[Rfam]
RNA sequence: AGAAAUCUUCAGGGCAGGGUCAGAUUCCCUACCGGUGGUAUAGCCCACGAGCCGUUAGGUAUGAUUCGGUGAGAUUCCGAAGCCGACAGUAUAGUCUGGAUGAAAGAAGAUGAAU
Numbered sequence: 001a002g003a004a005a006u007c008u009u010c011a012g013g014g015c016a017g018g019g020u021c022a023g024a025u026u027c028c029c030u031a032c033c034g035g036u037g038g039u040a041u042a043g044c045c046c047a048c049g050a051g052c053c054g055u056u057a058g059g060u061a062u063g064a065u066u067c068g069g070u071g072a073g074a075u076u077c078c079g080a081a082g083c084c085g086a087c088a089g090u091a092u093a094g095u096c097u098g099g100a101u102g103a104a105a106g107a108a109g110a111u112g113a114a115u
Base pairs, nucleotide, nucleotide: 005111006110007109008108009107010106017029018028019027031095032094033085034084035048036047037046038045043083044082053059065081066080067079068078069077087098088097089096
A member of the RNA family "FMN riboswitch aptamer (RFN element)" from Lachnospiraceae bacterium 3-1, 115 nucleotides long.
A search with the family's covariance model found it, with a score of 109 bits.